Rfam assigns this 194-nucleotide RNA sequence from Coccidioides immitis to the family "U2 spliceosomal RNA". Clan: U2 clan. Rfam's curators put it in the seed alignment. From the family's description: U2 is a small nuclear RNA (snRNA) component of the spliceosome (involved in pre-mRNA splicing). A reference for the family is Zwieb (1997), "The uRNA database", Nucleic Acids Res. The organism belongs to Coccidioides immitis, within Eukaryota.

RNA sequence: CCAGCUCUCUUUGCCAUUAUGGCUUAGAUCAAGUGUAGUAUCUGUUCUUUUCAGUUUAAUCUCUGAAAGUAUUCUAAGGAAUACAACAUUGAUUAAUCUUAUUUUUGGAUCCCGCAGGAAAAUCUCUGUGCUUGCGCAUGUUUUCCGGCACCGUGUCAUCAGUCUUACACUACCGCUGAUUGACGCGAAUUUUC
Numbered sequence: 001c002c003a004g005c006u007c008u009c010u011u012u013g014c015c016a017u018u019a020u021g022g023c024u025u026a027g028a029u030c031a032a033g034u035g036u037a038g039u040a041u042c043u044g045u046u047c048u049u050u051u052c053a054g055u056u057u058a059a060u061c062u063c064u065g066a067a068a069g070u071a072u073u074c075u076a077a078g079g080a081a082u083a084c085a086a087c088a089u090u091g092a093u094u095a096a097u098c099u100u101a102u103u104u105u106u107g108g109a110u111c112c113c114g115c116a117g118g119a120a121a122a123u124c125u126c127u128g129u130g131c132u133u134g135c136g137c138a139u140g141u142u143u144u145c146c147g148g149c150a151c152c153g154u155g156u157c158a159u160c161a162g163u164c165u166u167a168c169a170c171u172a173c174c175g176c177u178g179a180u181u182g183a184c185g186c187g188a189a190u191u192u193u194c
Stems, first nucleotide, its partner, number of pairs: 008028003013023003049068006069084006114149002117146005127138004152187006159179005